[Rfam]
RNA sequence: GGGUCUAACCAGCUGUAACAGCAUCUCCAUAUGGAAAAACUCUGACUUCCAGUGGAGCUGCUGUUAUUUCUGGGGAGCAC
Numbered sequence: 001g002g003g004u005c006u007a008a009c010c011a012g013c014u015g016u017a018a019c020a021g022c023a024u025c026u027c028c029a030u031a032u033g034g035a036a037a038a039a040c041u042c043u044g045a046c047u048u049c050c051a052g053u054g055g056a057g058c059u060g061c062u063g064u065u066a067u068u069u070c071u072g073g074g075g076a077g078c079a080c
Stems, first nucleotide, its partner, number of pairs: 009073003015067008025057006032051003
The family of this 80-nucleotide RNA from Cynoglossus semilaevis is "mir-194 microRNA precursor family". NCBI's taxonomy places the organism under Eukaryota, Deuterostomia, Euacanthomorphacea, Carangaria, Cynoglossus. The literature on the family includes a 2003 paper in RNA by Lagos-Quintana et al., "New microRNAs from mouse and human". It scores 72 bits against the family's covariance model.